[Rfam]
RNA sequence: AUUUUAUUCUGUUAGGUGAGGCUACUUUAUGGAUAUAUGCUGCUACCCACCUUUUGUCUAAAGACAAAAAACUGGGUGAACAACUCUUGUCGGAUUAAGGCUUGAGUUAAUGUAGCUGACUUUCAAAAGUCAAAGUUGUAAAGUGCUAAAGCUCAACGUGGAGAAUAAAUU
Number, nucleotide and partner (000 for none) at each position: 001a000002u000003u000004u000005u167006a166007u165008u164009c163010u162011g157012u156013u098014a000015g153016g152017u151018g000019a000020g147021g146022c145023u000024a000025c143026u142027u141028u140029a139030u138031g137032g136033a000034u000035a000036u000037a000038u000039g116040c115041u114042g113043c112044u000045a077046c076047c075048c074049a073050c000051c000052u000053u000054u000055u066056g065057u064058c063059u000060a000061a000062a000063g058064a057065c056066a055067a000068a000069a000070a000071a000072c000073u049074g048075g047076g046077u045078g000079a000080a000081c000082a000083a107084c106085u105086c104087u000088u000089g101090u100091c099092g000093g000094a000095u000096u000097a000098a013099g091100g090101c089102u000103u000104g086105a085106g084107u083108u000109a000110a000111u000112g043113u042114a041115g040116c039117u000118g131119a130120c129121u000122u000123u000124c000125a000126a000127a000128a000129g120130u119131c118132a000133a000134a000135g000136u032137u031138g030139u029140a028141a027142a026143g025144u000145g022146c021147u020148a000149a000150a000151g017152c016153u015154c000155a000156a012157c011158g000159u000160g000161g000162a010163g009164a008165a007166u006167a005168a000169a000170u000171u000
Shown here is a 171-nucleotide RNA sequence from Spiroplasma platyhelix, a member of the family "M-box riboswitch aptamer (ykoK leader)". M-box riboswitch, also know as ykoK leader is described as a metaloregulatory RNA that sense divalent metals and function as a genetic control element of genes related to divalent metal transport in bacteria. It was first reported upstream of the B.subtilis ykoK gene and genes with related functions in other bacteria.